[Rfam]
Rfam assigns this 102-nucleotide RNA from Virgibacillus sp. SK37 to the family "SAM riboswitch aptamer (S box leader)". The organism belongs to Virgibacillus, within Bacteria. The match comes from Rfam's covariance-model search (97 bits). The base pairs follow the family's consensus structure, which is taken from published work.
RNA sequence: UUCUUAUCCAGAGAGGUGGAGGGACUGGCCCGACGAUACCUCGGCAACGGACUGAUUUAGUACCGUGCCAAUUCCAGCAGGCGUAUGCCUGAAAGAUAAGAA
Numbered sequence: 001u002u003c004u005u006a007u008c009c010a011g012a013g014a015g016g017u018g019g020a021g022g023g024a025c026u027g028g029c030c031c032g033a034c035g036a037u038a039c040c041u042c043g044g045c046a047a048c049g050g051a052c053u054g055a056u057u058u059a060g061u062a063c064c065g066u067g068c069c070a071a072u073u074c075c076a077g078c079a080g081g082c083g084u085a086u087g088c089c090u091g092a093a094a095g096a097u098a099a100g101a102a
Base pairs, nucleotide, nucleotide: 001102002101003100004099005098006097007096008095013042014041015040016039017038021031022030023029025077026076027075028074043069044068045067046066048065049064051061052060053059054058073094078091079090080089081088082087